Shown here is an 85-nucleotide RNA from Eptesicus fuscus, a member of the family "mir-9215 microRNA precursor family". Taxonomically the source falls in Eptesicus (Eukaryota, Opisthokonta, Tetrapoda, Eutheria). Rfam's curators put it in the seed alignment. The base pairs follow the family's consensus structure, which was predicted with RNAalifold. Its family is annotated with RISC complex and miRNA-mediated post-transcriptional gene silencing in the Gene Ontology.
[Rfam]
Nucleotides: 085
Base pairs, nucleotide, nucleotide: 001083002082003081004080006079007078008077009076012072013071014070015069016068017067019066022063024061025060027059028058029057031054032053033052037050039048040047
Number, partner (000 for none) and nucleotide at each position: 001083u002082g003081a004080a005000g006079u007078g008077c009076u010000c011000u012072g013071a014070c015069a016068c017067u018000a019066g020000g021000a022063c023000g024061u025060g026000u027059g028058g029057c030000u031054g032053c033052c034000a035000u036000a037050g038000a039048u040047u041000g042000g043000u044000g045000g046000g047040a048039a049000c050037c051000a052033g053032g054031c055000u056000u057029g058028c059027c060025c061024a062000g063022g064000g065000u066019c067017a068016g069015u070014g071013u072012u073000c074000u075000c076009a077008g078007c079006a080004u081003u082002c083001a084000g085000u